[Rfam]
RNA sequence: AUGAUUCUUCAGGGCGGGGUGAAAGUCCCCACCGGUGGUAUAGCCCACGAGCCUAUUUAGGCAUGAUUCGGUGGAAUUCCGAAGCCGACAGUAUAGUCUGGAUGGAAGAAGAUAUCA
Numbered sequence: 001a002u003g004a005u006u007c008u009u010c011a012g013g014g015c016g017g018g019g020u021g022a023a024a025g026u027c028c029c030c031a032c033c034g035g036u037g038g039u040a041u042a043g044c045c046c047a048c049g050a051g052c053c054u055a056u057u058u059a060g061g062c063a064u065g066a067u068u069c070g071g072u073g074g075a076a077u078u079c080c081g082a083a084g085c086c087g088a089c090a091g092u093a094u095a096g097u098c099u100g101g102a103u104g105g106a107a108g109a110a111g112a113u114a115u116c117a
Base pairs, nucleotide, nucleotide: 003115006112007111008110009109010108017029018028019027031097032096033087034086035048036047037046038045043085044084053061067083068082069081070080071079089100090099091098
The record is a 117-nucleotide sequence from Tepidimicrobium xylanilyticum, which matches "FMN riboswitch aptamer (RFN element)" in Rfam. The match comes from Rfam's covariance-model search (113 bits). Taxonomically the source falls in Tepidimicrobium (Bacteria, Bacillati, Tissierellia, Tissierellales).